[Rfam]
RNA sequence: UGGUCCGAUGGUAGUGGGUUAUCAGAACUUAUUAACCUUAGUGUCAUUAAAGUUGGUAUAUAGCCCCUCACUGCUAAAUCUGGCUGAAAUUUU
Numbered sequence: 001u002g003g004u005c006c007g008a009u010g011g012u013a014g015u016g017g018g019u020u021a022u023c024a025g026a027a028c029u030u031a032u033u034a035a036c037c038u039u040a041g042u043g044u045c046a047u048u049a050a051a052g053u054u055g056g057u058a059u060a061u062a063g064c065c066c067c068u069c070a071c072u073g074c075u076a077a078a079u080c081u082g083g084c085u086g087a088a089a090u091u092u093u
Stems, first nucleotide, its partner, number of pairs: 001086005007081001012076001013072006030058003034054002
Shown here is a 93-nucleotide sequence from Macaca fascicularis, a member of the family "Y RNA".
A reference for the family is Teunissen et al. (2000), "Conserved features of Y RNAs: a comparison of experimentally derived secondary structures", Nucleic Acids Res.
Taxonomically the source falls in Macaca (Eukaryota, Euteleostomi, Haplorrhini, Cercopithecoidea).